[Rfam]
RNA sequence: AUUGGAAAGAAAAGGUAAGUGGAAGCGUUCGCGUCGCUGCUCCUGUCAGAUGCACGCCUCUGCGAAUCCUGCU
Numbered sequence: 001a002u003u004g005g006a007a008a009g010a011a012a013a014g015g016u017a018a019g020u021g022g023a024a025g026c027g028u029u030c031g032c033g034u035c036g037c038u039g040c041u042c043c044u045g046u047c048a049g050a051u052g053c054a055c056g057c058c059u060c061u062g063c064g065a066a067u068c069c070u071g072c073u
Stems, first nucleotide, its partner, number of pairs: 014042001015040003018073005024067001025037003047062004052057001
RNA: Mammalian CPEB3 ribozyme
Organism: Neodiprion lecontei